[Rfam]
RNA: MIR162_1 microRNA precursor family
Organism: Jatropha curcas
RNA sequence: GACGAGGUCACUGGAGGCAGCGGUUCAUCGAUCUCUUCCUGGAGGAUUUUGUUGUCACAUAAGCAAAAUGACAUGAAUCGAUCGAUAAACCUCUGCAUCCAGCGCUUCCCCU
Numbered sequence: 001g002a003c004g005a006g007g008u009c010a011c012u013g014g015a016g017g018c019a020g021c022g023g024u025u026c027a028u029c030g031a032u033c034u035c036u037u038c039c040u041g042g043a044g045g046a047u048u049u050u051g052u053u054g055u056c057a058c059a060u061a062a063g064c065a066a067a068a069u070g071a072c073a074u075g076a077a078u079c080g081a082u083c084g085a086u087a088a089a090c091c092u093c094u095g096c097a098u099c100c101a102g103c104g105c106u107u108c109c110c111c112u
Stems, first nucleotide, its partner, number of pairs: 013100003018095003022091004027086007036077003